RNA sequence: CAAUUUUUACAGCUAUUUUAGAAUUUGUCUAACAGGUUUUCCAUUUUUUUUUUUUUUUUUUUACUGGAAAACCCCC
Numbered sequence: 001c002a003a004u005u006u007u008u009a010c011a012g013c014u015a016u017u018u019u020a021g022a023a024u025u026u027g028u029c030u031a032a033c034a035g036g037u038u039u040u041c042c043a044u045u046u047u048u049u050u051u052u053u054u055u056u057u058u059u060u061u062u063a064c065u066g067g068a069a070a071a072c073c074c075c076c
Stems, first nucleotide, its partner, number of pairs: 035073009045063001
RNA: U7 small nuclear RNA